[Rfam]
RNA sequence: CCACCUAUAAUUAUCGGGCCUCGUAUAACCUCGGGAAUAAGGCUCGAGGGUCUCUACCAGAAACCAUAAAUUUCUGAUUACGACCUGCUUGUAAGAAUGA
Number, nucleotide and partner (000 for none) at each position: 001c000002c000003a000004c000005c000006u000007a000008u000009a000010a000011u000012u000013a000014u000015c000016g000017g000018g086019c000020c000021u083022c082023g081024u080025a079026u000027a000028a000029c049030c048031u047032c046033g045034g044035g043036a000037a000038u000039a000040a000041g000042g000043c035044u034045c033046g032047a031048g030049g029050g000051u000052c000053u000054c000055u000056a000057c000058c076059a075060g074061a073062a072063a071064c000065c000066a000067u000068a000069a000070a000071u063072u062073u061074c060075u059076g058077a000078u000079u025080a024081c023082g022083a021084c000085c000086u018087g000088c000089u000090u000091g000092u000093a000094a000095g000096a000097a000098u000099g000100a000
RNA: Purine riboswitch aptamer